[Rfam]
RNA sequence: GGUCAUGAGUGCCAGCGACAGCCCCGGCUUGCUGGCCGGCAACCCUCCUUUCGCGGCGGGGUGCCCCGGGUGAAGACCUGGCCUGCCGGCCAGUUGGCGGCAGGCAAGCGCGAAGA
Numbered sequence: 001g002g003u004c005a006u007g008a009g010u011g012c013c014a015g016c017g018a019c020a021g022c023c024c025c026g027g028c029u030u031g032c033u034g035g036c037c038g039g040c041a042a043c044c045c046u047c048c049u050u051u052c053g054c055g056g057c058g059g060g061g062u063g064c065c066c067c068g069g070g071u072g073a074a075g076a077c078c079u080g081g082c083c084u085g086c087c088g089g090c091c092a093g094u095u096g097g098c099g100g101c102a103g104g105c106a107a108g109c110g111c112g113a114a115g116a
Base pairs, nucleotide, nucleotide: 001078002077003076004075009037011036012035013034014033015032016031020029021028038065039064040063043061044060045059047056048055081105082104083103084102085101086100087099089098090097091096
Shown here is a 116-nucleotide sequence from Arthrobacter sp. FB24, a member of the family "SAM (S-adenosyl methionine) riboswitch aptamer". The family is grouped with related families in Rfam's "SAM clan".